Shown here is a 149-nucleotide RNA from Nostoc sp. PCC 7120 = FACHB-418, a member of the family "c-di-AMP riboswitch aptamer (ydaO/yuaA leader)". The source organism's lineage runs through Bacteria, Bacillati, Cyanophyceae, Nostocales and Nostoc. The match comes from Rfam's covariance-model search (75 bits).
[Rfam]
RNA sequence: AAAUCAGUCAGCCUAAUCUUAAUUGCCCCAAACAUUGAGGCAAUUAAAGAGCGGAGGAACCAAAAAUGGGGCGUAUUUUGGAUUAUCCAAAAAGGAUAUCUCUCAGUCCUAGCCCGUCAGCUAACUUCGUCGGCAUUGAGAGGAGAUUG
Numbered sequence: 001a002a003a004u005c006a007g008u009c010a011g012c013c014u015a016a017u018c019u020u021a022a023u024u025g026c027c028c029c030a031a032a033c034a035u036u037g038a039g040g041c042a043a044u045u046a047a048a049g050a051g052c053g054g055a056g057g058a059a060c061c062a063a064a065a066a067u068g069g070g071g072c073g074u075a076u077u078u079u080g081g082a083u084u085a086u087c088c089a090a091a092a093a094g095g096a097u098a099u100c101u102c103u104c105a106g107u108c109c110u111a112g113c114c115c116g117u118c119a120g121c122u123a124a125c126u127u128c129g130u131c132g133g134c135a136u137u138g139a140g141a142g143g144a145g146a147u148u149g
Stems, first nucleotide, its partner, number of pairs: 011134003017050003051130006061068002069115003077091004094109004